[Rfam]
RNA sequence: AACCUAAACCCCGCAAGGGGCAUGGUUUAAAAACGUUCAACACAUAAAGCUCCUAGUCAGAGCUCGUGUUGAACGUUGCAUCGGGAAACCGGUGCAGGGGUCGCAAGACCU
Numbered sequence: 001a002a003c004c005u006a007a008a009c010c011c012c013g014c015a016a017g018g019g020g021c022a023u024g025g026u027u028u029a030a031a032a033a034c035g036u037u038c039a040a041c042a043c044a045u046a047a048a049g050c051u052c053c054u055a056g057u058c059a060g061a062g063c064u065c066g067u068g069u070u071g072a073a074c075g076u077u078g079c080a081u082c083g084g085g086a087a088a089c090c091g092g093u094g095c096a097g098g099g100g101u102c103g104c105a106a107g108a109c110c111u
Stems, first nucleotide, its partner, number of pairs: 001027004009020004034075010048064005077096008098111005
This 111-nucleotide sequence belongs to the Rfam family "LOOT RNA".